Notes
MIR5565 microRNA precursor family: a 109-nucleotide RNA sequence from Sorghum bicolor.
RNA sequence: GUAGUCGGAUUCGCAUCAAUCCAUAUGUAUUGGGGUGGAUUGGAAUGGAACUUUAACUAAAUUUCACCCCAAUCCACUCUAAUACAUGUGGAUUGAGGUGAAUCCGACA
Numbered sequence: 001g002u003a004g005u006c007g008g009a010u011u012c013g014c015a016u017c018a019a020u021c022c023a024u025a026u027g028u029a030u031u032g033g034g035g036u037g038g039a040u041u042g043g044a045a046u047g048g049a050a051c052u053u054u055a056a057c058u059a060a061a062u063u064u065c066a067c068c069c070c071a072a073u074c075c076a077c078u079c080u081a082a083u084a085c086a087u088g089u090g091g092a093u094u095g096a097g098g099u100g101a102a103u104c105c106g107a108c109a
Base pairs, nucleotide, nucleotide: 004108005107006106007105008104009103010102011101012100013099014098016096017095018094019093020092021091022090023089024088025087026086027085028084029083030082031081032080035077036076037075038074039073040072041071042070043069046066047065